[Rfam]
RNA sequence: UUCGUGGCUGACGUCGUGCCAGAAGCGCGUUUACACCGUUAAAGGUUCUGAUUGAAGUCUGUAAAUGCACUAUCUGGUACGACAGUCGGGCAUGU
Numbered sequence: 001u002u003c004g005u006g007g008c009u010g011a012c013g014u015c016g017u018g019c020c021a022g023a024a025g026c027g028c029g030u031u032u033a034c035a036c037c038g039u040u041a042a043a044g045g046u047u048c049u050g051a052u053u054g055a056a057g058u059c060u061g062u063a064a065a066u067g068c069a070c071u072a073u074c075u076g077g078u079a080c081g082a083c084a085g086u087c088g089g090g091c092a093u094g095u
Stems, first nucleotide, its partner, number of pairs: 008089004015081009025070001027068009
This 95-nucleotide sequence from Diabrotica virgifera belongs to the Rfam family "mir-277 microRNA precursor family". For this family Rfam cites "MicroRNAs of Bombyx mori identified by Solexa sequencing" (Liu et al., BMC Genomics, 2010). Pairs were carried over by alignment from the consensus structure, which was predicted with RNAalifold. The organism belongs to Diabrotica virgifera, within Eukaryota.